A member of the RNA family "mir-395 microRNA precursor family" from Zea mays, 104 nucleotides long. Rfam describes the family as follows. mir-395 was identified in both Arabidopsis thaliana and Oryza sativa computationally and was later experimentally verified. mir-395 is thought to target mRNAs coding for ATP sulphurylases. The mature sequence is excised from the 3' arm of the hairpin. NCBI's taxonomy places the organism under Eukaryota, Magnoliopsida, Poaceae, Tripsacinae, Zea. For this family Rfam cites "Computational Identification of Plant MicroRNAs and Their Targets, Including a Stress-Induced miRNA" (Jones-Rhoades and Bartel, Mol Cell, 2004). The family has 25 seed sequences and 2,798 matches in Rfam 15.1. The base pairs follow the family's consensus structure, which was predicted with PFOLD. Gene Ontology terms of the family: miRNA-mediated post-transcriptional gene silencing and RISC complex.

[Rfam]
RNA sequence: UUAUCAUCAAGAGUUUCCUCAAACACUUCACAAUGCAAUAAAUUAAGCUUUCUCUAAGACAGAAUGCUCCAUGUGAAGUGCUUGAAGGAAACUCAUGAAGACAC
Numbered sequence: 001u002u003a004u005c006a007u008c009a010a011g012a013g014u015u016u017c018c019u020c021a022a023a024c025a026c027u028u029c030a031c032a033a034u035g036c037a038a039u040a041a042a043u044u045a046a047g048c049u050u051u052c053u054c055u056a057a058g059a060c061a062g063a064a065u066g067c068u069c070c071a072u073g074u075g076a077a078g079u080g081c082u083u084g085a086a087g088g089a090a091a092c093u094c095a096u097g098a099a100g101a102c103a104c
Base pairs, nucleotide, nucleotide: 005100007098008097009096011094012093013092014091015090016089017088018087019086020084021083022082024080025079026078027077028076029075030074031073032072035069